[Rfam]
RNA sequence: GUUGGGAGAGGUCCCUCAGCCCAGAUUGCAAGAGGGUGCAGGCCAGGCUGAGGGACCCCACUGGUGCACU
Numbered sequence: 001g002u003u004g005g006g007a008g009a010g011g012u013c014c015c016u017c018a019g020c021c022c023a024g025a026u027u028g029c030a031a032g033a034g035g036g037u038g039c040a041g042g043c044c045a046g047g048c049u050g051a052g053g054g055a056c057c058c059c060a061c062u063g064g065u066g067c068a069c070u
Stems, first nucleotide, its partner, number of pairs: 001065001003063003008059001010057012024043001026041005
Dot-bracket structure: (.(((..(.((((((((((((..(.(((((......))))).)..)))))))))))).).))).).....
RNA: mir-9193 microRNA precursor family
Organism: Myotis myotis